[Rfam]
RNA sequence: GGGGGAGGCCGGGUCCUGGGCUGUGCCCCGGCGGCCUGAGCUCCAGAGCCUGUGCUGUUGGAUUCGCGGUCCCGGGGCCCCGCACCCCCCU
Numbered sequence: 001g002g003g004g005g006a007g008g009c010c011g012g013g014u015c016c017u018g019g020g021c022u023g024u025g026c027c028c029c030g031g032c033g034g035c036c037u038g039a040g041c042u043c044c045a046g047a048g049c050c051u052g053u054g055c056u057g058u059u060g061g062a063u064u065c066g067c068g069g070u071c072c073c074g075g076g077g078c079c080c081c082g083c084a085c086c087c088c089c090c091u
Base pairs, nucleotide, nucleotide: 001091002090003089004088005087008083009082011079012078015075016074018072019071020070022068023067024066025065027061028060029057030056031055032054033053038050040049041048042047
Overview
Shown here is a 91-nucleotide RNA from Canis lupus, a member of the family "mir-8799 microRNA precursor family". Rfam's curators put it in the seed alignment. Pairs were carried over by alignment from the consensus structure, which was predicted with RNAalifold. Its family is annotated with RISC complex and miRNA-mediated post-transcriptional gene silencing in the Gene Ontology.